[Rfam]
RNA sequence: UGACUGCGAUGAUGUGAAAGGUUGCUGACACACCCGGCCGCUUUGCCAUGGCGAGUGCGUCAGGUUAAUUUUCACGGAGAAUGUCUAUCAAUAAUAUAGGCGA
Numbered sequence: 001u002g003a004c005u006g007c008g009a010u011g012a013u014g015u016g017a018a019a020g021g022u023u024g025c026u027g028a029c030a031c032a033c034c035c036g037g038c039c040g041c042u043u044u045g046c047c048a049u050g051g052c053g054a055g056u057g058c059g060u061c062a063g064g065u066u067a068a069u070u071u072u073c074a075c076g077g078a079g080a081a082u083g084u085c086u087a088u089c090a091a092u093a094a095u096a097u098a099g100g101c102g103a
Base pairs, nucleotide, nucleotide: 014075015074016073018072019071020070021069025063026062027061028060029059082102083101084100085099086098087097088096
S10-Clostridia ribosomal protein leader: a 103-nucleotide RNA sequence from Bacillus sp. THAF10. Pairs were carried over by alignment from the consensus structure, which is taken from published work. A search with the family's covariance model found it, with a score of 44 bits. The literature on the family includes a 2020 paper in BMC Microbiol by Eckert and Weinberg, "Discovery of 20 novel ribosomal leader candidates in bacteria and archaea".